[Rfam]
RNA sequence: CGAGAUGGCCAAGACAAUCGCCGCUAUAUCGUUGUACUUUAGCCUUCGGGUUUUAGUAGACGGAUGUGGGGGAGGAAAGUCCGGGCUCCAUACGGACAGGUUGCCAGAUAACUUCUGGGGGGCGUGAGCCUACAACUAGUGCAGCAGAGAGUAUACCGCCGAUGGCCUUUUCUUGUAAAAGUGCACAGGUAAGGGUGAAAGGGUGCGGUAAGAGCGCACCGCGCGACUAGUAAUAGUUCGUGGCACGGUAAACUUCAGCCGGAGCAAUUUCAAAUAGGGUUCCUCGAUCCUUAGAGGUCAACGCGUGGUCCGCGCGGGAACCGGGUAGAAAGCUUGAGCCUUAGAGCGAUUUAAGGCCUAGACGAAUGAUUGUCCUAGACAAAACCCGGCUUAACGGCCAUCUCGCAAU
Dot-bracket structure: ((((((((((..(((((((.((.((((((..................................)))))).))....[[[.[[[[[((((....[[[[.((((((((((.....)))))(((((....)))).)((...((((.............(((((..((...................))..)))..)).......((((((.......))))))(((((((((....))).))))).)...))..)))))))))))))...((((......((((((..................(((((.]]]]))))))))))).....))))......((((((((....))))))))..........)))))))..........]]]]]]]]...))))))))))....
The family of this 409-nucleotide RNA sequence from Psychrosphaera saromensis is "Bacterial RNase P class A".
It scores 297 bits against the family's covariance model.
NCBI's taxonomy places the organism under Bacteria, Pseudomonadati, Gammaproteobacteria, Alteromonadales, Psychrosphaera.
Pairs were carried over by alignment from the consensus structure, which is taken from published work.